[Rfam]
RNA sequence: GUAAACACCCGCCGCGAGCGUGAAGUUAUUGCGGGAAUUCAGUCGAUUUGCCGCAAUAACUUC
Numbered sequence: 001g002u003a004a005a006c007a008c009c010c011g012c013c014g015c016g017a018g019c020g021u022g023a024a025g026u027u028a029u030u031g032c033g034g035g036a037a038u039u040c041a042g043u044c045g046a047u048u049u050g051c052c053g054c055a056a057u058a059a060c061u062u063c
Stems, first nucleotide, its partner, number of pairs: 022063013035049001039045001
Dot-bracket structure: .....................((((((((((((((...(.....)...).)))))))))))))